[Rfam]
RNA sequence: AUGACUAUAGCGUGAGAUAUCUUUUGAAAGGAUAGCCGAAGAAGCAAUAUGAAAAGAGCCAAAUUUCUAUAGAAACUUUCAGGCAAAAGGAGCGUUAUAUGAUG
Numbered sequence: 001a002u003g004a005c006u007a008u009a010g011c012g013u014g015a016g017a018u019a020u021c022u023u024u025u026g027a028a029a030g031g032a033u034a035g036c037c038g039a040a041g042a043a044g045c046a047a048u049a050u051g052a053a054a055a056g057a058g059c060c061a062a063a064u065u066u067c068u069a070u071a072g073a074a075a076c077u078u079u080c081a082g083g084c085a086a087a088a089g090g091a092g093c094g095u096u097a098u099a100u101g102a103u104g
Stems, first nucleotide, its partner, number of pairs: 006099008019033004035084003038080002042078003048071004
The record is a 104-nucleotide RNA from Gottschalkia purinilytica, which matches "Glycine riboswitch aptamer" in Rfam. The match comes from Rfam's covariance-model search (55 bits). NCBI's taxonomy places the organism under Bacteria, Tissierellia, Tissierellales, Gottschalkiaceae, Gottschalkia.